[Rfam]
RNA sequence: UGGCAUGAUUUCCUGCAGGUUGAGCUCAGCCAAGUACCACCCCUCAGUAAGCCUAGAGUAGAGGGGCCUGACAUCCUUUCCUUAAAUUAAACAAGGAGCCUUAUCCAGGUUGUCCUAGUCUCAUACUU
Numbered sequence: 001u002g003g004c005a006u007g008a009u010u011u012c013c014u015g016c017a018g019g020u021u022g023a024g025c026u027c028a029g030c031c032a033a034g035u036a037c038c039a040c041c042c043c044u045c046a047g048u049a050a051g052c053c054u055a056g057a058g059u060a061g062a063g064g065g066g067c068c069u070g071a072c073a074u075c076c077u078u079u080c081c082u083u084a085a086a087u088u089a090a091a092c093a094a095g096g097a098g099c100c101u102u103a104u105c106c107a108g109g110u111u112g113u114c115c116u117a118g119u120c121u122c123a124u125a126c127u128u
Stems, first nucleotide, its partner, number of pairs: 002053003006049002015042001018041003022037001024035001063122005070115001075109003084102002
Dot-bracket structure: .(((.((.......(..(((.(.(..........).).)))).....)).))).........(((((..(....(((......((...............))....))).....)..)))))......
RNA: Small Cajal body specific RNA 21